Description:
The record is a 58-nucleotide sequence from Leptolyngbya sp. FACHB-261, which matches "Nitrogen stress-induced RNA 1" in Rfam. NCBI's taxonomy places the organism under Bacteria, Cyanobacteriota, Leptolyngbyales, Leptolyngbyaceae, Leptolyngbya. The family has 17 seed sequences and 962 matches in Rfam 15.1. By type it is a small RNA.
RNA sequence: UGGUAGAUGCACCCUGAUUUCACCCCCAGCCCCUUUCGAGGGAUUGGGGGCGUUUCAU
Numbered sequence: 001u002g003g004u005a006g007a008u009g010c011a012c013c014c015u016g017a018u019u020u021c022a023c024c025c026c027c028a029g030c031c032c033c034u035u036u037c038g039a040g041g042g043a044u045u046g047g048g049g050g051c052g053u054u055u056c057a058u
Base pairs, nucleotide, nucleotide: 002013003012004011023050024049025048026047027046028045029044031042032041033040